Source information
A member of the RNA family "Small nucleolar RNA SNORA40" from Odontophorus gujanensis, 128 nucleotides long. From the family's description: The snoRNA ACA 40 belongs to the H/ACA family of snoRNAs and guides the pseudouridylation of 28S rRNA subunit at position U4565. NB This family has a high threshold value to exclude a large number of closely related sequences that do not appear to have conserved H and ACA boxes, and may be pseudogenes. The family's consensus secondary structure was predicted with RNAalifold. It scores 51 bits against the family's covariance model. By type it is an H/ACA-box small nucleolar RNA. Its family is annotated with RNA processing and nucleolus in the Gene Ontology. The organism belongs to Odontophorus, within Eukaryota.
[Rfam]
RNA sequence: AGCACGUGUUCAGUUUUUGUCUGGUGCUGUAGGCAAAAACCUGGAACCUAGUGCUUAGAAAAAAAACCUUCUUUCGCAACCCACAGCUGAUGUGUGUCUUGGCUGUGUUACUUAUAUGAAGGGACAGU
Numbered sequence: 001a002g003c004a005c006g007u008g009u010u011c012a013g014u015u016u017u018u019g020u021c022u023g024g025u026g027c028u029g030u031a032g033g034c035a036a037a038a039a040c041c042u043g044g045a046a047c048c049u050a051g052u053g054c055u056u057a058g059a060a061a062a063a064a065a066a067c068c069u070u071c072u073u074u075c076g077c078a079a080c081c082c083a084c085a086g087c088u089g090a091u092g093u094g095u096g097u098c099u100u101g102g103c104u105g106u107g108u109u110a111c112u113u114a115u116a117u118g119a120a121g122g123g124a125c126a127g128u
Stems, first nucleotide, its partner, number of pairs: 001055005008048001010045001013040008025031001068123003072119002076115001082107009